[Rfam]
RNA sequence: UGUGUGAUGUAGGUAGUUUCAAGUUGUUGGGCUGGAUGAUCACAGGAACCUGAAACUGCCUGAAUCACACA
Numbered sequence: 001u002g003u004g005u006g007a008u009g010u011a012g013g014u015a016g017u018u019u020c021a022a023g024u025u026g027u028u029g030g031g032c033u034g035g036a037u038g039a040u041c042a043c044a045g046g047a048a049c050c051u052g053a054a055a056c057u058g059c060c061u062g063a064a065u066c067a068c069a070c071a
Stems, first nucleotide, its partner, number of pairs: 003069006010062010023049003027045003031041001
Rfam assigns this 71-nucleotide RNA from Echeneis naucrates to the family "mir-196 microRNA precursor family". A reference for the family is Lagos-Quintana et al. (2003), "New microRNAs from mouse and human", RNA. A search with the family's covariance model found it, with a score of 64 bits. Pairs were carried over by alignment from the consensus structure, which was predicted with PFOLD.